The family of this 138-nucleotide RNA sequence from Terrapene triunguis is "Small nucleolar RNA SNORA5". NCBI's taxonomy places the organism under Eukaryota, Chordata, Craniata, Testudines, Terrapene. The base pairs follow the family's consensus structure, which was predicted with RNAfold. Rfam's curators write: ACA5 is a member of the H/ACA class of snoRNA that guide the sites of modification of uridines to pseudouridines. It is annotated as an H/ACA-box small nucleolar RNA.

RNA sequence: UGCAGCCAUGUCAAAUUCAGUACUUGUCUUCUCCAUGGUGGGUACUGGCCCAGCCGGCUGCCACAGCAACACCUGUAGUUCAUGGGCCCCAUGUCCCGCUCAUUGGACCCUGGGGAUAAAACCGUGCUACAGACACCC
Numbered sequence: 001u002g003c004a005g006c007c008a009u010g011u012c013a014a015a016u017u018c019a020g021u022a023c024u025u026g027u028c029u030u031c032u033c034c035a036u037g038g039u040g041g042g043u044a045c046u047g048g049c050c051c052a053g054c055c056g057g058c059u060g061c062c063a064c065a066g067c068a069a070c071a072c073c074u075g076u077a078g079u080u081c082a083u084g085g086g087c088c089c090c091a092u093g094u095c096c097c098g099c100u101c102a103u104u105g106g107a108c109c110c111u112g113g114g115g116a117u118a119a120a121a122c123c124g125u126g127c128u129a130c131a132g133a134c135a136c137c138c
Stems, first nucleotide, its partner, number of pairs: 002061004018047011075130005080124001087115005